[Rfam]
RNA sequence: UCUAGAACUUGAGAUAUGUGUUGAACACUGAACAGUGUCUGGGCUGCAGGACAAAUUCCGACUUCUCCAUUGUUGCUAAGAUUUGGACUUCCAAACAACAUAAUUGAAUCUUAGACUCCCAUGAAUGUUUUAGGCCUAUGUCUUAGCUUUCUAAA
Numbered sequence: 001u002c003u004a005g006a007a008c009u010u011g012a013g014a015u016a017u018g019u020g021u022u023g024a025a026c027a028c029u030g031a032a033c034a035g036u037g038u039c040u041g042g043g044c045u046g047c048a049g050g051a052c053a054a055a056u057u058c059c060g061a062c063u064u065c066u067c068c069a070u071u072g073u074u075g076c077u078a079a080g081a082u083u084u085g086g087a088c089u090u091c092c093a094a095a096c097a098a099c100a101u102a103a104u105u106g107a108a109u110c111u112u113a114g115a116c117u118c119c120c121a122u123g124a125a126u127g128u129u130u131u132a133g134g135c136c137u138a139u140g141u142c143u144u145a146g147c148u149u150u151c152u153a154a155a
Base pairs, nucleotide, nucleotide: 003153004152005151006150007149008146009145011144012143013142014141015140016139017138018137020135021133022132023131024130025129027128028127035122036121037120041119042118043117045115048112049111050110051109054105055104056103057102060099063097072088073087074086